RNA: Small nucleolar RNA SNORD24
Organism: Camellia sinensis
RNA sequence: GGUCGGUGAUGUGAUUACAAAUAUUUGCUACUCUUGAGUGAGUUUUGUUUCAAAACUCCCCCUGAUGAUUCCUAUCCACCAAGAUCUCUGUGGCC
Numbered sequence: 001g002g003u004c005g006g007u008g009a010u011g012u013g014a015u016u017a018c019a020a021a022u023a024u025u026u027g028c029u030a031c032u033c034u035u036g037a038g039u040g041a042g043u044u045u046u047g048u049u050u051c052a053a054a055a056c057u058c059c060c061c062c063u064g065a066u067g068a069u070u071c072c073u074a075u076c077c078a079c080c081a082a083g084a085u086c087u088c089u090g091u092g093g094c095c
Stems, first nucleotide, its partner, number of pairs: 001095004